[Rfam]
RNA sequence: CUCACUUUGUGUAAAUAACACACACGUAUCGGCACAUCCGCCGGGGUGCCCUGAGGUGAUUUAUCACCGCCAGGGUCGGCGUUAUGGGAUACGUGGAGGCAUAAC
Numbered sequence: 001c002u003c004a005c006u007u008u009g010u011g012u013a014a015a016u017a018a019c020a021c022a023c024a025c026g027u028a029u030c031g032g033c034a035c036a037u038c039c040g041c042c043g044g045g046g047u048g049c050c051c052u053g054a055g056g057u058g059a060u061u062u063a064u065c066a067c068c069g070c071c072a073g074g075g076u077c078g079g080c081g082u083u084a085u086g087g088g089a090u091a092c093g094u095g096g097a098g099g100c101a102u103a104a105c
Stems, first nucleotide, its partner, number of pairs: 023095008035086003040080004048076005
Dot-bracket structure: ......................((((((((....(((..((((....(((((...................)))))))))...))).))))))))..........